RNA sequence: GGUUCGAUGCCACGUCGCUGGUAGCUAAAGUUGCAAUGACCGACGAUGCUAUGAUUGAACCGAUAUUAAGUUUUUUCGUUUCGCAAUUUAUAGGAACCUGUGAACUGUUAAAUUCCCGUUCAUUCACAGAGCCGGUUUUUGCGACUACAUUU
Numbered sequence: 001g002g003u004u005c006g007a008u009g010c011c012a013c014g015u016c017g018c019u020g021g022u023a024g025c026u027a028a029a030g031u032u033g034c035a036a037u038g039a040c041c042g043a044c045g046a047u048g049c050u051a052u053g054a055u056u057g058a059a060c061c062g063a064u065a066u067u068a069a070g071u072u073u074u075u076u077c078g079u080u081u082c083g084c085a086a087u088u089u090a091u092a093g094g095a096a097c098c099u100g101u102g103a104a105c106u107g108u109u110a111a112a113u114u115c116c117c118g119u120u121c122a123u124u125c126a127c128a129g130a131g132c133c134g135g136u137u138u139u140u141g142c143g144a145c146u147a148c149a150u151u152u
Base pairs, nucleotide, nucleotide: 002060003059004058005057006056007055008054009052013048014047015046016045017044020041021040022039024034025033081144082143083142084141085140093133094132098129099128100127102125103124104123106122107121
Annotation
The family of this 152-nucleotide RNA from Helianthus annuus is "Small nucleolar RNA snoR2/U65". For this family Rfam cites "Localization and processing from a polycistronic precursor of novel snoRNAs in maize" (Shaw et al., J Cell Sci, 1998). The organism belongs to Helianthus, within Eukaryota. Pairs were carried over by alignment from the consensus structure, which was predicted with WAR. Gene Ontology terms of the family: nucleolus and RNA processing.